RNA sequence: GUAGUCAGUGUAAACAUCCUACACUCGGCUAUCACUUAUGAGUAAAAGCUGGGAGAAGGGUGUUUACUUUGACUGG
Dot-bracket structure: .(((((.(.(((((((((((.(.(((((((................))))))).).))))))))))).).))))).

A member of the RNA family "mir-30 microRNA precursor family" from Megalops atlanticus, 76 nucleotides long. Gene Ontology terms of the family: RISC complex and gene silencing by miRNA. A search with the family's covariance model found it, with a score of 59 bits. This family consists of the mammalian microRNA (miRNA) precursor mir-30a. Animal miRNAs are transcribed as ~70nt precursors and subsequently processed by the Dicer enzyme to give a ~22nt product. In this case the mature sequence comes from both the 3' (miR-30) and 5' (mir-97-6) arms of the precursor. The extents of the hairpin precursors are not generally known and are estimated based on hairpin prediction.